[Rfam]
RNA sequence: GGGAGUGGAUGGGGCCCGGUGGCUCUUGCGGACUUCAAAUCCGUCGUGCCCGGUGGACCCGGGUAGGUGGGUUCGACUCCCUCCCACUCCC
Number, nucleotide and partner (000 for none) at each position: 001g091002g090003g089004a088005g087006u086007g085008g084009a000010u000011g026012g025013g024014g023015c022016c021017c000018g000019g000020u000021g016022g015023c014024u013025c012026u011027u000028g044029c043030g042031g041032a040033c000034u000035u000036c000037a000038a000039a000040u032041c031042c030043g029044u028045c000046g000047u065048g064049c063050c062051c061052g000053g000054u000055g000056g000057a000058c000059c000060c000061g051062g050063g049064u048065a047066g000067g000068u000069g081070g080071g079072u000073u000074c000075g000076a000077c000078u000079c071080c070081c069082u000083c000084c008085c007086a006087c005088u004089c003090c002091c001

Record summary: Rfam assigns this 91-nucleotide RNA from SAR202 cluster bacterium AD-802-E10_MRT_200m to the family "Selenocysteine transfer RNA". It scores 71 bits against the family's covariance model.